RNA sequence: GUGUAUUCGUACCCUUAUCAUUCUUUCGCCCCGUGUGAUUUCCAAUACUACUGGACGGAGAACUGAUAAGGGCCCGUGUCACC
Numbered sequence: 001g002u003g004u005a006u007u008c009g010u011a012c013c014c015u016u017a018u019c020a021u022u023c024u025u026u027c028g029c030c031c032c033g034u035g036u037g038a039u040u041u042c043c044a045a046u047a048c049u050a051c052u053g054g055a056c057g058g059a060g061a062a063c064u065g066a067u068a069a070g071g072g073c074c075c076g077u078g079u080c081a082c083c
Stems, first nucleotide, its partner, number of pairs: 012072009021062003025059003030054002
RNA: mir-184 microRNA precursor family
Organism: Megaselia scalaris